[Rfam]
RNA: Plastid-ycf2 5UTR RNA
Organism: Ensete ventricosum
RNA sequence: GUACAUCUAGCAGAAAUUGAAACUACAAAUUUGCCAAUUAUGCAUUGGAUGCUUUAACCAUUCAGCCAUGGAUGC
Numbered sequence: 001g002u003a004c005a006u007c008u009a010g011c012a013g014a015a016a017u018u019g020a021a022a023c024u025a026c027a028a029a030u031u032u033g034c035c036a037a038u039u040a041u042g043c044a045u046u047g048g049a050u051g052c053u054u055u056a057a058c059c060a061u062u063c064a065g066c067c068a069u070g071g072a073u074g075c
Base pairs, nucleotide, nucleotide: 004074005073006072007071008070010026012024013023040069041068042067045065046064047063048062049061050060051059